[Rfam]
Shown here is a 367-nucleotide RNA sequence from Porphyra umbilicalis, a member of the family "Group I catalytic intron". Group I catalytic introns are large self-splicing ribozymes.
RNA sequence: GCACGCCCUUUAAAAUGGCGGGACGGCAAUUUUGCACAAGUAUGAGGGUGCCUUGUCCUUCCGGAUCGUCGAACUGCGUGUCAGCUGCGACUUUCUCAAAUUGCGCGAAAACCCUAAAGCCGGGAGAUACCGCGGCCGCUUGGAUUAACACGCGGCGCAGCAGCAGGGGUAGUGCCCCUGCGGAUGGCAAAAACUCUCUCAGAUGCGAGUUCGUAACGGCUCACAAUGGGCAAUCCGCAGCCAAGCUCCCGUUUCUCCCUUACGUGGCAGGGAGGAGGAGAAGGUUCACAGACUGUAAGGGAAGGGGUGUCUCCGCACAAAACGGGGGGGCGCUUAAGAGACAGUCGGUCCCCUGCGAAAGCAGGGU
Numbered sequence: 001g002c003a004c005g006c007c008c009u010u011u012a013a014a015a016u017g018g019c020g021g022g023a024c025g026g027c028a029a030u031u032u033u034g035c036a037c038a039a040g041u042a043u044g045a046g047g048g049u050g051c052c053u054u055g056u057c058c059u060u061c062c063g064g065a066u067c068g069u070c071g072a073a074c075u076g077c078g079u080g081u082c083a084g085c086u087g088c089g090a091c092u093u094u095c096u097c098a099a100a101u102u103g104c105g106c107g108a109a110a111a112c113c114c115u116a117a118a119g120c121c122g123g124g125a126g127a128u129a130c131c132g133c134g135g136c137c138g139c140u141u142g143g144a145u146u147a148a149c150a151c152g153c154g155g156c157g158c159a160g161c162a163g164c165a166g167g168g169g170u171a172g173u174g175c176c177c178c179u180g181c182g183g184a185u186g187g188c189a190a191a192a193a194c195u196c197u198c199u200c201a202g203a204u205g206c207g208a209g210u211u212c213g214u215a216a217c218g219g220c221u222c223a224c225a226a227u228g229g230g231c232a233a234u235c236c237g238c239a240g241c242c243a244a245g246c247u248c249c250c251g252u253u254u255c256u257c258c259c260u261u262a263c264g265u266g267g268c269a270g271g272g273a274g275g276a277g278g279a280g281a282a283g284g285u286u287c288a289c290a291g292a293c294u295g296u297a298a299g300g301g302a303a304g305g306g307g308u309g310u311c312u313c314c315g316c317a318c319a320a321a322a323c324g325g326g327g328g329g330g331c332g333c334u335u336a337a338g339a340g341a342c343a344g345u346c347g348g349u350c351c352c353c354u355g356c357g358a359a360a361g362c363a364g365g366g367u
Stems, first nucleotide, its partner, number of pairs: 005027003009023003031042001033040001091305005097299001102239004107234001112230003240285002247279003254273004289347001291346005307333008352365005
Lineage of the source: Eukaryota > Rhodophyta > Bangiophyceae > Bangiaceae > Porphyra.